Source information:
Shown here is a 170-nucleotide RNA sequence from Domibacillus mangrovi, a member of the family "glmS glucosamine-6-phosphate activated ribozyme aptamer". The family's RNA type in Rfam is riboswitch. The source organism's lineage runs through Bacteria, Bacillati, Caryophanales, Bacillaceae and Domibacillus. Gene Ontology terms of the family: regulation of gene expression and catalytic activity.
Nucleotides: 170
Base pairs, nucleotide, nucleotide: 020048021047022046023045024044025043026042027041057088058087059086060085061084066077067076068075069074089107090106091105092104093103094102113160114159115158116157117156118155119154127145128144130141131140132139133138
Number, partner (000 for none) and nucleotide at each position: 001000u002000u003000u004000g005000a006000c007000u008000u009000a010000a011000a012000a013000g014000c015000g016000c017000c018000u019000g020048a021047a022046c023045u024044a025043a026042g027041c028000g029000g030000g031000a032000c033000g034000a035000c036000a037000a038000u039000a040000c041027g042026c043025u044024u045023a046022g047021u048020u049000g050000a051000c052000g053000a054000g055000g056000g057088g058087g059086a060085g061084g062000u063000u064000u065000a066077u067076c068075g069074a070000u071000g072000a073000u074069u075068c076067g077066g078000c079000g080000g081000a082000u083000g084061c085060c086059u087058c088057c089107c090106g091105g092104u093103u094102g095000c096000g097000g098000u099000a100000c101000a102094c103093a104092a105091c106090u107089g108000u109000u110000a111000u112000g113160u114159u115158c116157a117156a118155u119154c120000u121000u122000u123000a124000a125000a126000a127145c128144a129000g130141c131140g132139g133138g134000g135000u136000a137000a138133c139132u140131c141130g142000g143000a144128u145127g146000u147000a148000c149000a150000a151000a152000g153000g154119g155118a156117u157116u158115g159114g160113a161000c162000u163000u164000g165000u166000a167000c168000c169000a170000u